The family of this 78-nucleotide sequence from Mesocricetus auratus is "mir-450 microRNA precursor family". The family has 36 seed sequences and 374 matches in Rfam 15.1. It scores 94 bits against the family's covariance model. Taxonomically the source falls in Mesocricetus (Eukaryota, Metazoa, Chordata, Tetrapoda). For this family Rfam cites "MicroRNA transcriptome in the newborn mouse ovaries determined by massive parallel sequencing" (Ahn et al., Mol Hum Reprod, 2010).
RNA sequence: GCUGAACUGUUUUUGCGAUGUGUUCCUAAUAUGUACUAUGAGUAUAUUGGGGACAUUUUGCAUUCAUGGUUCUGCUUC
Numbered sequence: 001g002c003u004g005a006a007c008u009g010u011u012u013u014u015g016c017g018a019u020g021u022g023u024u025c026c027u028a029a030u031a032u033g034u035a036c037u038a039u040g041a042g043u044a045u046a047u048u049g050g051g052g053a054c055a056u057u058u059u060g061c062a063u064u065c066a067u068g069g070u071u072c073u074g075c076u077u078c
Stems, first nucleotide, its partner, number of pairs: 004072007014062005020056014